[Rfam]
RNA sequence: GUUUUAGUAUAAGUAUAUCCCAUGCUAUAUUUGGGAUAUACUUAUCUUAAAU
Numbered sequence: 001g002u003u004u005u006a007g008u009a010u011a012a013g014u015a016u017a018u019c020c021c022a023u024g025c026u027a028u029a030u031u032u033g034g035g036a037u038a039u040a041c042u043u044a045u046c047u048u049a050a051a052u
Stems, first nucleotide, its partner, number of pairs: 006048002009045004014040003018036004022031001
Description:
A member of the RNA family "mir-1302 microRNA precursor family" from Macaca mulatta, 52 nucleotides long. Lineage of the source: Eukaryota > Vertebrata > Mammalia > Cercopithecoidea > Macaca. The base pairs follow the family's consensus structure, which was predicted with WAR. Gene Ontology terms of the family: miRNA-mediated post-transcriptional gene silencing and RISC complex. It scores 62 bits against the family's covariance model. On this family, see Morin et al., Genome Res 2008: "Application of massively parallel sequencing to microRNA profiling and discovery in human embryonic stem cells".